The family of this 81-nucleotide sequence from Achromobacter xylosoxidans is "Pseudomonas sRNA P9". This small RNA (sRNA) was computationally identified in the genome of the opportunistic pathogen Pseudomonas aeruginosa and its expression verified by northern blot analysis. P9 appears to be conserved in several Pseudomonas species in addition to Bordetella spp. In both Pseudomonas and Bordetella spp P9 appears to be located upstream of a predicted threonine dehydratase gene. P9 has a predicted Rho independent terminator at the 3' end but the function of P9 is unknown. A reference for the family is Livny et al. (2006), "Identification of 17 Pseudomonas aeruginosa sRNAs and prediction of sRNA-encoding genes in 10 diverse pathogens using the bioinformatic tool sRNAPredict2", Nucleic Acids Res.

RNA sequence: CUGAUUAUUACCACCAUCAGGUCCAUGGUGGGUUAGCGCGCGUCGGUACAUCGCUACAUAAACCCGCCAGAGGCGGGUUUU
Numbered sequence: 001c002u003g004a005u006u007a008u009u010a011c012c013a014c015c016a017u018c019a020g021g022u023c024c025a026u027g028g029u030g031g032g033u034u035a036g037c038g039c040g041c042g043u044c045g046g047u048a049c050a051u052c053g054c055u056a057c058a059u060a061a062a063c064c065c066g067c068c069a070g071a072g073g074c075g076g077g078u079u080u081u
Base pairs, nucleotide, nucleotide: 011031012030013029014028015027016026017025060080061079062078063077064076065075066074067073068072